[Rfam]
RNA sequence: UAAUUGAAUCAAAAUAGAGCUUAUAUAAUAGUCAUGAUAUGGAUGACGAGUUUCUACCUGCGAACCUUAAAUUUGCGGACUAUGAGCAUAUAGUUUUGUGAU
Numbered sequence: 001u002a003a004u005u006g007a008a009u010c011a012a013a014a015u016a017g018a019g020c021u022u023a024u025a026u027a028a029u030a031g032u033c034a035u036g037a038u039a040u041g042g043a044u045g046a047c048g049a050g051u052u053u054c055u056a057c058c059u060g061c062g063a064a065c066c067u068u069a070a071a072u073u074u075g076c077g078g079a080c081u082a083u084g085a086g087c088a089u090a091u092a093g094u095u096u097u098g099u100g101a102u
Stems, first nucleotide, its partner, number of pairs: 019087007029049001031047005058078007
The record is a 102-nucleotide RNA sequence from Cetobacterium sp. 2A, which matches "Purine riboswitch aptamer" in Rfam.
Its family is annotated with purine nucleobase biosynthetic process in the Gene Ontology.
Pairs were carried over by alignment from the consensus structure, which is taken from published work.
The organism belongs to Cetobacterium, within Bacteria.
It scores 78 bits against the family's covariance model.